The record is a 96-nucleotide RNA sequence from Paenibacillus oceani, which matches "c-di-GMP-I riboswitch aptamer" in Rfam.
[Rfam]
RNA sequence: AACAGAAAAAGGCACACUGUCCGAAAGGGCAGGCCGCAAAGCUACAGGGGCUACCCCUUCCGUCCCGCAUGGAAGGCAUGCCAGCCAGUUGCCUGU
Numbered sequence: 001a002a003c004a005g006a007a008a009a010a011g012g013c014a015c016a017c018u019g020u021c022c023g024a025a026a027g028g029g030c031a032g033g034c035c036g037c038a039a040a041g042c043u044a045c046a047g048g049g050g051c052u053a054c055c056c057c058u059u060c061c062g063u064c065c066c067g068c069a070u071g072g073a074a075g076g077c078a079u080g081c082c083a084g085c086c087a088g089u090u091g092c093c094u095g096u
Base pairs, nucleotide, nucleotide: 012037013036017032018031019030020029021028022027040090041089042088043087047086048085049082050081051080056076057075058074059073060072061071062070063069